[Rfam]
RNA sequence: GAGGUUCCGGUUCGCCGACGCCGACGUGCCGCUGUCGGAGCCGGACCCGGCGACC
Numbered sequence: 001g002a003g004g005u006u007c008c009g010g011u012u013c014g015c016c017g018a019c020g021c022c023g024a025c026g027u028g029c030c031g032c033u034g035u036c037g038g039a040g041c042c043g044g045a046c047c048c049g050g051c052g053a054c055c
Base pairs, nucleotide, nucleotide: 003055004054005053007050008049009048010047015044016043017042019040021038022037023036024035025034026033
RNA: L31-Actinobacteria ribosomal protein leader